RNA sequence: GGAAGCCCGUCCUGGCCGGUGCUGGGCCCGGUCUUCAAAACCGGCGAGUGGCGCUCGCGUCACUGGUGGGUUCGACUCCCACUGGCUUCC
Numbered sequence: 001g002g003a004a005g006c007c008c009g010u011c012c013u014g015g016c017c018g019g020u021g022c023u024g025g026g027c028c029c030g031g032u033c034u035u036c037a038a039a040a041c042c043g044g045c046g047a048g049u050g051g052c053g054c055u056c057g058c059g060u061c062a063c064u065g066g067u068g069g070g071u072u073c074g075a076c077u078c079c080c081a082c083u084g085g086c087u088u089c090c
Stems, first nucleotide, its partner, number of pairs: 001090007009082001011026006028044005047064005067081004
RNA: Selenocysteine transfer RNA
Organism: Bryobacteraceae bacterium